[Rfam]
Nucleotides: 100
Base pairs, nucleotide, nucleotide: 001100002099003098004097005096006095007094008093013042014041015040016039017038021031022030023029025076027074028073043068044067045066046065048064049063052059053058072092077089078088079087080086081085
Number, partner (000 for none) and nucleotide at each position: 001100u002099u003098c004097u005096u006095a007094u008093c009000a010000a011000g012000a013042g014041a015040g016039g017038u018000g019000g020000a021031g022030g023029g024000a025076u026000a027074g028073g029023c030022c031021c032000u033000u034000u035000g036000a037000a038017a039016c040015c041014u042013c043068g044067g045066c046065a047000a048064c049063g050000g051000a052059c053058u054000u055000u056000a057000u058053a059052g060000a061000a062000c063049c064048g065046u066045g067044c068043c069000a070000a071000c072092u073028c074027c075000c076025a077089c078088a079087a080086g081085c082000a083000g084000u085081g086080c087079u088078u089077g090000a091000a092072a093008g094007a095006u096005a097004a098003g099002a100001a
Description: The family of this 100-nucleotide sequence from Priestia megaterium is "SAM riboswitch aptamer (S box leader)". The organism belongs to Priestia megaterium, within Bacteria. Pairs were carried over by alignment from the consensus structure, which is taken from published work.